[Rfam]
RNA: Group II catalytic intron D1-D4-3
RNA sequence: CUGAGGGCGACCGAUGGUGGGAAGGAAGCGUGGAGCGAAACUGCGAGCCGAUGAACAAGAACCGGAUAGAAGGCGCUGCCGAGCAGGGCGAGCGGGCCAGAGACCGCGAAGCUCUCGUGAUCAAGGCGAAGUGGCGUAGAUUCGGCGGCUGUGCAGGGAAGGAGUGCGUUC
Numbered sequence: 001c002u003g004a005g006g007g008c009g010a011c012c013g014a015u016g017g018u019g020g021g022a023a024g025g026a027a028g029c030g031u032g033g034a035g036c037g038a039a040a041c042u043g044c045g046a047g048c049c050g051a052u053g054a055a056c057a058a059g060a061a062c063c064g065g066a067u068a069g070a071a072g073g074c075g076c077u078g079c080c081g082a083g084c085a086g087g088g089c090g091a092g093c094g095g096g097c098c099a100g101a102g103a104c105c106g107c108g109a110a111g112c113u114c115u116c117g118u119g120a121u122c123a124a125g126g127c128g129a130a131g132u133g134g135c136g137u138a139g140a141u142u143c144g145g146c147g148g149c150u151g152u153g154c155a156g157g158g159a160a161g162g163a164g165u166g167c168g169u170u171c
Base pairs, nucleotide, nucleotide: 001016005012006011028171030169031168032167036162041156042155043154044153045152046150047149048148049147050146062145063144064143065142066141067140073137074136075135077129079128083127084126086114087113088112089111092107093106094105095104